mir-320 microRNA precursor family: a 76-nucleotide sequence from Propithecus coquereli. A search with the family's covariance model found it, with a score of 65 bits. Pairs were carried over by alignment from the consensus structure, which was predicted with RNAalifold. The family has 38 seed sequences and 659 matches in Rfam 15.1. Lineage of the source: Eukaryota > Metazoa > Dipnotetrapodomorpha > Amniota > Propithecus. Gene Ontology terms of the family: RISC complex, miRNA-mediated post-transcriptional gene silencing and long-term synaptic potentiation. For this family Rfam cites "Many novel mammalian microRNA candidates identified by extensive cloning and RAKE analysis" (Berezikov et al., Genome Res, 2006).
RNA sequence: GACGAGCUUGUCCUUCUCUUCCCAGUUCUUCAUGGACUUGGGAAAAGGUGGGUUGAGGGGGCAAAAAAAAAAAAAA
Numbered sequence: 001g002a003c004g005a006g007c008u009u010g011u012c013c014u015u016c017u018c019u020u021c022c023c024a025g026u027u028c029u030u031c032a033u034g035g036a037c038u039u040g041g042g043a044a045a046a047g048g049u050g051g052g053u054u055g056a057g058g059g060g061g062c063a064a065a066a067a068a069a070a071a072a073a074a075a076a
Stems, first nucleotide, its partner, number of pairs: 014059005021052004029044003033040002